[Rfam]
RNA sequence: CUUUUACUGAAUGAAGACGCCCUCUAAAACCAGUGUGAGGAGGGCGUCUGAUGACGAAGAAAAG
Numbered sequence: 001c002u003u004u005u006a007c008u009g010a011a012u013g014a015a016g017a018c019g020c021c022c023u024c025u026a027a028a029a030c031c032a033g034u035g036u037g038a039g040g041a042g043g044g045c046g047u048c049u050g051a052u053g054a055c056g057a058a059g060a061a062a063a064g
Stems, first nucleotide, its partner, number of pairs: 001064005016048010030037001
The record is a 64-nucleotide RNA from Oryzias melastigma, which matches "Selenocysteine insertion sequence 1" in Rfam. NCBI's taxonomy places the organism under Eukaryota, Teleostomi, Euteleostomi, Beloniformes, Oryzias. On this family, see Walczak et al., RNA 1996: "A novel RNA structural motif in the selenocysteine insertion element of eukaryotic selenoprotein mRNAs". The incorporation of selenocysteine into a protein sequence is directed by an in-frame UGA codon (usually a stop codon) within the coding region of the mRNA. Selenoprotein mRNAs contain a conserved secondary structure in the 3' UTR that is required for the distinction of UGA stop from UGA selenocysteine. The selenocysteine insertion sequence (SECIS) is around 60 nt in length and adopts a hairpin structure which is sufficiently well-defined and conserved to act as a computational screen for selenoprotein genes. The match comes from Rfam's covariance-model search (36 bits). The base pairs follow the family's consensus structure, which is taken from published work.